[Rfam]
This 402-nucleotide RNA from Celeribacter indicus belongs to the Rfam family "Bacterial RNase P class A". Ribonuclease P (RNase P) is a ubiquitous endoribonuclease, found in archaea, bacteria and eukarya as well as chloroplasts and mitochondria. Gene Ontology terms of the family: dimeric ribonuclease P complex, ribonuclease P activity and tRNA processing.

RNA sequence: GCGGAUGGCCGGAUAACCGCCGCCGAAAGGGUAAGCCUUCGGGGGAGGAAAGUCCGGACUCCAUUGAGCAACGGUGCCGGGUAACGCCCGGCGGGGGCAACCCCAGGGACAGCGCCACAGAGAACAGACUGCCUUCCAUGCGGAGGUGAUGGUGAAACGGUGGGGUAAGAGCCCACCGCGGGACCGGCAACGGGACCGGCACGGCAAGCCCCACCGGGAGCAAUGCCAAAUAGGGAUCCGGCAGCGGUCCGGGGGGCGCGCCCUCCGUCCGCAAGGUCGCUCAAGCCUUCGGGAUCCGGGUUGGCAGCUUGAGCCCUCUGGCGACAGGGGGCCUGGAGGAAUGGUUAUCCACGGGGGCUCCGGCCCCCCGGACAGAAUCCGGCUUACAGGCCGUCCGCGCGC
Numbered sequence: 001g002c003g004g005a006u007g008g009c010c011g012g013a014u015a016a017c018c019g020c021c022g023c024c025g026a027a028a029g030g031g032u033a034a035g036c037c038u039u040c041g042g043g044g045g046a047g048g049a050a051a052g053u054c055c056g057g058a059c060u061c062c063a064u065u066g067a068g069c070a071a072c073g074g075u076g077c078c079g080g081g082u083a084a085c086g087c088c089c090g091g092c093g094g095g096g097g098c099a100a101c102c103c104c105a106g107g108g109a110c111a112g113c114g115c116c117a118c119a120g121a122g123a124a125c126a127g128a129c130u131g132c133c134u135u136c137c138a139u140g141c142g143g144a145g146g147u148g149a150u151g152g153u154g155a156a157a158c159g160g161u162g163g164g165g166u167a168a169g170a171g172c173c174c175a176c177c178g179c180g181g182g183a184c185c186g187g188c189a190a191c192g193g194g195a196c197c198g199g200c201a202c203g204g205c206a207a208g209c210c211c212c213a214c215c216g217g218g219a220g221c222a223a224u225g226c227c228a229a230a231u232a233g234g235g236a237u238c239c240g241g242c243a244g245c246g247g248u249c250c251g252g253g254g255g256g257c258g259c260g261c262c263c264u265c266c267g268u269c270c271g272c273a274a275g276g277u278c279g280c281u282c283a284a285g286c287c288u289u290c291g292g293g294a295u296c297c298g299g300g301u302u303g304g305c306a307g308c309u310u311g312a313g314c315c316c317u318c319u320g321g322c323g324a325c326a327g328g329g330g331g332c333c334u335g336g337a338g339g340a341a342u343g344g345u346u347a348u349c350c351a352c353g354g355g356g357g358c359u360c361c362g363g364c365c366c367c368c369c370g371g372a373c374a375g376a377a378u379c380c381g382g383c384u385u386a387c388a389g390g391c392c393g394u395c396c397g398c399g400c401g402c
Stems, first nucleotide, its partner, number of pairs: 001398010011387001012349007020045002023042005050385003054382005059220004068281001072216005077091005092106001093104004107211002112209002114205003129151001131147006159177006178200001179198003184193003224306004234297006273289005313332008